[Rfam]
RNA sequence: GACUCAUUUUGGCAAAACGUCUGAAAGGGCGUGACGCAAAGCCAAGGGGCCUACCCGUCUUAAGACAUAUGGCAGCCUGGUCACUAAU
Numbered sequence: 001g002a003c004u005c006a007u008u009u010u011g012g013c014a015a016a017a018c019g020u021c022u023g024a025a026a027g028g029g030c031g032u033g034a035c036g037c038a039a040a041g042c043c044a045a046g047g048g049g050c051c052u053a054c055c056c057g058u059c060u061u062a063a064g065a066c067a068u069a070u071g072g073c074a075g076c077c078u079g080g081u082c083a084c085u086a087a088u
Stems, first nucleotide, its partner, number of pairs: 012037002017032006041081003045078001047077002049073003057066003

Rfam assigns this 88-nucleotide sequence from Parablautia intestinalis to the family "c-di-GMP-I riboswitch aptamer". Lineage of the source: Bacteria > Bacillati > Bacillota > Clostridia > Parablautia. Its family is annotated with cyclic-di-GMP binding in the Gene Ontology. The base pairs follow the family's consensus structure, which is taken from published work.